[Rfam]
The family of this 71-nucleotide RNA from Dipodomys ordii is "mir-2985 microRNA precursor family". The base pairs follow the family's consensus structure, which was predicted with RNAalifold.
RNA sequence: CUCAUUAAGGUGGGUGGAGUAGUAUAACAAUGUGAUCUGUGUUGUUAUAGUAUUCCACCCUCCCUGAUGUC
Numbered sequence: 001c002u003c004a005u006u007a008a009g010g011u012g013g014g015u016g017g018a019g020u021a022g023u024a025u026a027a028c029a030a031u032g033u034g035a036u037c038u039g040u041g042u043u044g045u046u047a048u049a050g051u052a053u054u055c056c057a058c059c060c061u062c063c064c065u066g067a068u069g070u071c
Stems, first nucleotide, its partner, number of pairs: 003069005009063002012060006019053003023049011
Overview
For this family Rfam cites "The solution structure of the ADAR2 dsRBM-RNA complex reveals a sequence-specific readout of the minor groove" (Stefl et al., Cell, 2010). From the family's description: RNAs can be post-transcriptional modified, in micro RNAs (miRNA) editing of pre-mRNA is a common process. NCBI's taxonomy places the organism under Eukaryota, Craniata, Glires, Rodentia, Dipodomys.